[Rfam]
RNA sequence: AGGUCAAUGAUGAGUACUUUAUAUUGCCUUGAGGAGAGGUGAUGAUUAAAUAUCAUAUACAAGAUGGGCUCGGUGUCUCAGCCU
Numbered sequence: 001a002g003g004u005c006a007a008u009g010a011u012g013a014g015u016a017c018u019u020u021a022u023a024u025u026g027c028c029u030u031g032a033g034g035a036g037a038g039g040u041g042a043u044g045a046u047u048a049a050a051u052a053u054c055a056u057a058u059a060c061a062a063g064a065u066g067g068g069c070u071c072g073g074u075g076u077c078u079c080a081g082c083c084u
Stems, first nucleotide, its partner, number of pairs: 001084004005075002008072002
RNA: Small nucleolar RNA SNORD115
Organism: Carlito syrichta